PreQ1 (pre queuosine) riboswitch aptamer: a 45-nucleotide RNA sequence from [Mannheimia] succiniciproducens.
Rfam 15.1 lists 873 matches to the family in 692 species.
Gene Ontology term of the family: queuosine biosynthetic process.
The literature on the family includes a 2011 paper in J Biol Chem by Jenkins et al., "Comparison of a preQ1 riboswitch aptamer in metabolite-bound and free states with implications for gene regulation".
Rfam describes the family as follows. This family is a bacterial riboswitch that binds to the metabolite preQ1, an intermediate in the biosynthesis of the modified nucleoside queuosine from GTP. One example of this riboswitch is located in the leader of the Bacillus subtilis ykvJKLM (queCDEF) operon which encodes four genes necessary for queuosine production. PreQ1 binding to the riboswitch aptamer is thought to induce premature transcription termination within the leader to down-regulate expression of these genes.
Taxonomically the source falls in [Mannheimia] succiniciproducens (Bacteria, Pseudomonadati, Pasteurellales, Pasteurellaceae).
[Rfam]
RNA sequence: UAAUUCGUGGUUCGAAAACCUCCCACGCAAAAAAACUAAGGAAAA
Numbered sequence: 001u002a003a004u005u006c007g008u009g010g011u012u013c014g015a016a017a018a019c020c021u022c023c024c025a026c027g028c029a030a031a032a033a034a035a036c037u038a039a040g041g042a043a044a045a
Base pairs, nucleotide, nucleotide: 006027007026008025009024010023016037
Dot-bracket structure: .....(((((.....[......))))).........]........